[Rfam]
The record is a 135-nucleotide sequence from Sorex araneus, which matches "Small nucleolar RNA SNORA46" in Rfam. The source organism's lineage runs through Eukaryota, Bilateria, Soricidae, Soricinae and Sorex. The family's consensus secondary structure was predicted with RNAfold. The sequence is in the family's curated seed alignment. Rfam 15.1 lists 582 matches to the family in 490 species. ACA46 is a member of the H/ACA class of snoRNA that guide the sites of modification of uridines to pseudouridines.
RNA sequence: AGCACUAUAUUUAAACCAAUGGAUGGGACUCUUCCCCAUUCUUGGUUACGCUGUAGUGCAAAAGAAUUCCUGGCUCUUCAUGCACAGCUGACUUUCUGCCAUUCUGCUGUUGCAAUAUUGAGUUAAGGAACAUGU
Numbered sequence: 001a002g003c004a005c006u007a008u009a010u011u012u013a014a015a016c017c018a019a020u021g022g023a024u025g026g027g028a029c030u031c032u033u034c035c036c037c038a039u040u041c042u043u044g045g046u047u048a049c050g051c052u053g054u055a056g057u058g059c060a061a062a063a064g065a066a067u068u069c070c071u072g073g074c075u076c077u078u079c080a081u082g083c084a085c086a087g088c089u090g091a092c093u094u095u096c097u098g099c100c101a102u103u104c105u106g107c108u109g110u111u112g113c114a115a116u117a118u119u120g121a122g123u124u125a126a127g128g129a130a131c132a133u134g135u
Base pairs, nucleotide, nucleotide: 002059003058004057005056006055007054008053009052014047015046016045017044021041022040023039024038025037026036027035067130068129069128070127071126072124073123074122075121076120080116082113083112084111085109086108087107088106090104091103